[Rfam]
A member of the RNA family "Purine riboswitch aptamer" from Clostridium taeniosporum, 102 nucleotides long. NCBI's taxonomy places the organism under Bacteria, Bacillati, Bacillota, Clostridiaceae, Clostridium. Riboswitches are metabolite binding domains within certain messenger RNAs that serve as precision sensors for their corresponding targets. Allosteric rearrangement of mRNA structure is mediated by ligand binding, and this results in modulation of gene expression. Rfam links the family to the GO term purine nucleobase biosynthetic process. A search with the family's covariance model found it, with a score of 73 bits.

RNA sequence: UCAACAUUCAUACGGAAGACUCGUAUAUUUUCAAUAUAAUGGUUGGAAAGUUUCUACCUGCUAUCCGUAAAUUAGCAGACUACGAGGUAUUGUUAAAAUUCU
Numbered sequence: 001u002c003a004a005c006a007u008u009c010a011u012a013c014g015g016a017a018g019a020c021u022c023g024u025a026u027a028u029u030u031u032c033a034a035u036a037u038a039a040u041g042g043u044u045g046g047a048a049a050g051u052u053u054c055u056a057c058c059u060g061c062u063a064u065c066c067g068u069a070a071a072u073u074a075g076c077a078g079a080c081u082a083c084g085a086g087g088u089a090u091u092g093u094u095a096a097a098a099u100u101c102u
Base pairs, nucleotide, nucleotide: 018088020086021085022084023083024082025081029049030048031047032046034044058078059077060076061075062074063073